The family of this 297-nucleotide RNA sequence from Gigaspora rosea is "RNase MRP". The family has 66 seed sequences and 3,510 matches in Rfam 15.1. By type it is a ribozyme. It scores 134 bits against the family's covariance model. A reference for the family is Schmitt et al. (1993), "Secondary structure of RNase MRP RNA as predicted by phylogenetic comparison", FASEB J. Lineage of the source: Eukaryota > Glomeromycotina > Diversisporales > Gigasporaceae > Gigaspora. RNase MRP is an enzymatically active ribonucleoprotein with two distinct roles in eukaryotes.

[Rfam]
Nucleotides: 297
Base pairs, nucleotide, nucleotide: 002297003296004295005294007292008291009290010289011288014228015227016226017225018224019223022079023078024077025076026075027074028073037064038063039062040061041060042059083283084282085281087280088279089278090277099111100110101109102108112125113124114123128198132196134194135193136192138191139190140189141188151177152176153175160171161170162169163168230267231266232265233264234263235262236261237260238259
Number, partner (000 for none) and nucleotide at each position: 001000g002297a003296a004295c005294a006000c007292c008291u009290c010289a011288a012000a013000g014228a015227a016226u017225c018224g019223c020000u021000a022079u023078c024077a025076a026075a027074g028073c029000c030000a031000c032000a033000u034000a035000c036000g037064g038063a039062g040061c041060a042059g043000u044000a045000a046000u047000u048000u049000u050000u051000u052000a053000a054000a055000u056000u057000a058000u059042u060041u061040g062039c063038u064037c065000a066000a067000u068000u069000u070000a071000u072000u073028g074027c075026u076025u077024u078023g079022g080000g081000g082000a083283a084282a085281g086000u087280c088279c089278u090277c091000g092000g093000a094000c095000a096000u097000a098000u099111g100110g101109c102108a103000g104000a105000a106000a107000g108102u109101g110100u111099c112125g113124c114123c115000c116000a117000u118000a119000a120000u121000g122000u123114g124113g125112c126000a127000u128198u129000a130000u131000c132196a133000u134194u135193c136192g137000u138191u139190g140189a141188c142000c143000u144000u145000u146000u147000u148000u149000a150000u151177g152176c153175c154000a155000a156000a157000g158000a159000a160171a161170g162169a163168g164000u165000u166000u167000a168163c169162u170161c171160u172000u173000g174000a175153g176152g177151c178000u179000g180000u181000u182000a183000g184000g185000a186000g187000u188141g189140u190139c191138a192136c193135g194134a195000u196132u197000g198128g199000u200000u201000u202000c203000g204000u205000u206000g207000g208000u209000c210000a211000u212000a213000g214000c215000a216000c217000a218000g219000u220000u221000a222000u223019g224018c225017g226016a227015u228014u229000g230267u231266g232265g233264u234263c235262u236261c237260u238259u239000c240000u241000g242000a243000u244000c245000u246000u247000c248000u249000u250000u251000g252000g253000a254000a255000g256000a257000u258000a259238g260237g261236g262235a263234g264233g265232u266231c267230a268000u269000a270000a271000c272000a273000c274000a275000a276000c277090g278089a279088g280087g281085c282084u283083u284000a285000c286000u287000c288011u289010u290009g291008g292007g293000a294005u295004g296003u297002u